[Rfam]
Shown here is a 168-nucleotide RNA from Dictyobacter arantiisoli, a member of the family "FMN riboswitch aptamer (RFN element)". Rfam links the family to the GO term FMN binding.
RNA sequence: AGAGACCUUCGGGGCAGGGUGAAAUUCCCGACCGGCGGUAAGGUAGCAAGCUUAAAAAGAGCCCUAUCAAGCCCGCGAGUCUAUAUGCAGUCGCUUCUUGACUAUGUAUAUGAUUGAUUCGGUGCAAUUCCGAAGCCGACGGUACAGUCCGGAUGGGAGAAGGUUAUG
Numbered sequence: 001a002g003a004g005a006c007c008u009u010c011g012g013g014g015c016a017g018g019g020u021g022a023a024a025u026u027c028c029c030g031a032c033c034g035g036c037g038g039u040a041a042g043g044u045a046g047c048a049a050g051c052u053u054a055a056a057a058a059g060a061g062c063c064c065u066a067u068c069a070a071g072c073c074c075g076c077g078a079g080u081c082u083a084u085a086u087g088c089a090g091u092c093g094c095u096u097c098u099u100g101a102c103u104a105u106g107u108a109u110a111u112g113a114u115u116g117a118u119u120c121g122g123u124g125c126a127a128u129u130c131c132g133a134a135g136c137c138g139a140c141g142g143u144a145c146a147g148u149c150c151g152g153a154u155g156g157g158a159g160a161a162g163g164u165u166a167u168g
Base pairs, nucleotide, nucleotide: 004165005164006163007162008161009160010159017029018028019027031148032147033138034137035076036075037074038073071136072135079114080113081112118134119133120132121131122130140151141150142149

Lineage of the source: Bacteria > Ktedonobacteria > Ktedonobacterales > Dictyobacteraceae > Dictyobacter. The literature on the family includes a 2002 paper in Proc Natl Acad Sci U S A by Winkler et al., "An mRNA structure that controls gene expression by binding FMN".